[Rfam]
RNA sequence: GAACAAAAGUUUUUGUUCACUCCUCACACCAUAUCUCGCCCGGAUCGCCAUAGUAUUCGGGCGUU
Numbered sequence: 001g002a003a004c005a006a007a008a009g010u011u012u013u014u015g016u017u018c019a020c021u022c023c024u025c026a027c028a029c030c031a032u033a034u035c036u037c038g039c040c041c042g043g044a045u046c047g048c049c050a051u052a053g054u055a056u057u058c059g060g061g062c063g064u065u
Stems, first nucleotide, its partner, number of pairs: 001018007037063009
The record is a 65-nucleotide sequence from [Limnothrix rosea] IAM M-220, which matches "Cyanobacterial functional RNA 1" in Rfam.
The family's RNA type in Rfam is small RNA.
A reference for the family is Axmann et al. (2005), "Identification of cyanobacterial non-coding RNAs by comparative genome analysis", Genome Biol.